[Rfam]
RNA: tRNA
RNA sequence: GUGGGCGUAGCUCAGUUGGUAGAGCCCUGGAUUGUGAUUCCAGUCGUCGUGGGUUCGAGUCCCAUCGCCCACC
Numbered sequence: 001g002u003g004g005g006c007g008u009a010g011c012u013c014a015g016u017u018g019g020u021a022g023a024g025c026c027c028u029g030g031a032u033u034g035u036g037a038u039u040c041c042a043g044u045c046g047u048c049g050u051g052g053g054u055u056c057g058a059g060u061c062c063c064a065u066c067g068c069c070c071a072c073c
Base pairs, nucleotide, nucleotide: 001072002071003070004069005068006067007066010025011024012023013022027043028042029041030040031039049065050064051063052062053061